[Rfam]
RNA sequence: CCAACGUGGAUACCCCGGGAGGUCACUCUCCCCGGGCUCUGUCCAGGUGGCGCAGGGGAGCAUAGGGCUCUGCCCCGUGAUGUACAGUCCCUUUCCACAACGUUGGAGAGAAAGCCGGGCCUUGAGUCUGCGCCUGCAUAUUCCUACAGCUUCUCAGAGUCCUGUGGACGAUGACUGAGGAGACAAACCAUGCAGGAAACAUCU
Numbered sequence: 001c002c003a004a005c006g007u008g009g010a011u012a013c014c015c016c017g018g019g020a021g022g023u024c025a026c027u028c029u030c031c032c033c034g035g036g037c038u039c040u041g042u043c044c045a046g047g048u049g050g051c052g053c054a055g056g057g058g059a060g061c062a063u064a065g066g067g068c069u070c071u072g073c074c075c076c077g078u079g080a081u082g083u084a085c086a087g088u089c090c091c092u093u094u095c096c097a098c099a100a101c102g103u104u105g106g107a108g109a110g111a112a113a114g115c116c117g118g119g120c121c122u123u124g125a126g127u128c129u130g131c132g133c134c135u136g137c138a139u140a141u142u143c144c145u146a147c148a149g150c151u152u153c154u155c156a157g158a159g160u161c162c163u164g165u166g167g168a169c170g171a172u173g174a175c176u177g178a179g180g181a182g183a184c185a186a187a188c189c190a191u192g193c194a195g196g197a198a199a200c201a202u203c204u
Base pairs, nucleotide, nucleotide: 001106002105003104004103005102006101007100008044009043010042011041012040014036015035016034018029019028020027021026047098048097049096050095056091057090058089059088060085062083063082064081065078133196134195135194136193137192138191139190150182151181152180153179154178155177159169160168161167162166
Rfam assigns this 204-nucleotide RNA from Myotis lucifugus to the family "Small nucleolar RNA SNORA73 family". From the family's description: U17 (SNORA73A and SNORA73B) also known as E1 belongs to the H/ACA class of small nucleolar RNAs (snoRNAs). Vertebrate U17 is intron-encoded and ranges in length from 200-230 nucleotides, longer than most snoRNAs. It is one of the most abundant snoRNAs in human cells and is essential for the cleavage of pre-rRNA within the 5' external transcribed spacer (ETS). This cleavage leads to the formation of 18S rRNA. Regions of the U17 RNA are complementary to rRNA and act as guides for RNA/RNA interactions, although these regions do not seem to be well conserved between organisms. Rfam's curators put it in the seed alignment. Rfam 15.1 lists 2,326 matches to the family in 660 species. Its Rfam clan is "snR30-U17 clan". NCBI's taxonomy places the organism under Eukaryota, Amniota, Mammalia, Theria, Myotis. The literature on the family includes a 1996 paper in RNA by Enright et al., "5'ETS rRNA processing facilitated by four small RNAs: U14, E3, U17, and U3".